[Rfam]
RNA sequence: GGAUAACACUUUUUGUUAUUCCCGACCAAGAACACAAUGACACGUGAUAUCAUUUUUUCACGUGUCAUUGUAUUAUUGGCUGGGAAUAGCAAAACAGUGUUAUCC
Numbered sequence: 001g002g003a004u005a006a007c008a009c010u011u012u013u014u015g016u017u018a019u020u021c022c023c024g025a026c027c028a029a030g031a032a033c034a035c036a037a038u039g040a041c042a043c044g045u046g047a048u049a050u051c052a053u054u055u056u057u058u059c060a061c062g063u064g065u066c067a068u069u070g071u072a073u074u075a076u077u078g079g080c081u082g083g084g085a086a087u088a089g090c091a092a093a094a095c096a097g098u099g100u101u102a103u104c105c
Stems, first nucleotide, its partner, number of pairs: 002104004011094009021084004026079004031074002034071014049056001
RNA: MIR6274 microRNA precursor family